The record is a 94-nucleotide RNA from Papaver nudicaule, which matches "Small nucleolar RNA snoR53Y" in Rfam.
The base pairs follow the family's consensus structure, which was predicted with WAR.
The literature on the family includes a 2001 paper in RNA by Brown et al., "Multiple snoRNA gene clusters from Arabidopsis".
Lineage of the source: Eukaryota > Streptophytina > Tracheophyta > Magnoliopsida > Papaver.

[Rfam]
RNA sequence: GUUCCCAGUGAUGAUUAACAGCCAUGCUAAUUCUGAGAUUCUUUUGGUUUUGAUGAAUUGAAUCUUUUGUUUAUCCAGAACGUCUGAGGGAACU
Numbered sequence: 001g002u003u004c005c006c007a008g009u010g011a012u013g014a015u016u017a018a019c020a021g022c023c024a025u026g027c028u029a030a031u032u033c034u035g036a037g038a039u040u041c042u043u044u045u046g047g048u049u050u051u052g053a054u055g056a057a058u059u060g061a062a063u064c065u066u067u068u069g070u071u072u073a074u075c076c077a078g079a080a081c082g083u084c085u086g087a088g089g090g091a092a093c094u
Stems, first nucleotide, its partner, number of pairs: 001093005